[Rfam]
RNA sequence: GUGCUGUGAUGUCAGCUGUCAACACAUCAUUCUGAAGAAGAAUUGUGUGGAGACUUUCCGGGUUCUGAGCACC
Numbered sequence: 001g002u003g004c005u006g007u008g009a010u011g012u013c014a015g016c017u018g019u020c021a022a023c024a025c026a027u028c029a030u031u032c033u034g035a036a037g038a039a040g041a042a043u044u045g046u047g048u049g050g051a052g053a054c055u056u057u058c059c060g061g062g063u064u065c066u067g068a069g070c071a072c073c
Stems, first nucleotide, its partner, number of pairs: 001072004
RNA: Small nucleolar RNA SNORD63